[Rfam]
Description
Rfam assigns this 66-nucleotide sequence from Marinobacter similis to the family "L31-Gammaproteobacteria ribosomal protein leader". It is annotated as a cis-regulatory leader. Clan: Ribosomal Protein L31 Leader clan.
RNA sequence: UAUGCGGUGCCUGGCGCCCGGGCUCACAGAGUCCCGCGAUCGGGUAGCGGCAUAACCUAACGAGGU
Number, nucleotide and partner (000 for none) at each position: 001u054002a053003u052004g051005c050006g000007g048008u047009g000010c000011c043012u042013g041014g040015c038016g037017c036018c000019c000020g000021g000022g000023c000024u000025c000026a000027c000028a000029g000030a000031g000032u000033c000034c000035c000036g017037c016038g015039a000040u014041c013042g012043g011044g000045u000046a000047g008048c007049g000050g005051c004052a003053u002054a001055a000056c000057c000058u000059a000060a000061c000062g000063a000064g000065g000066u000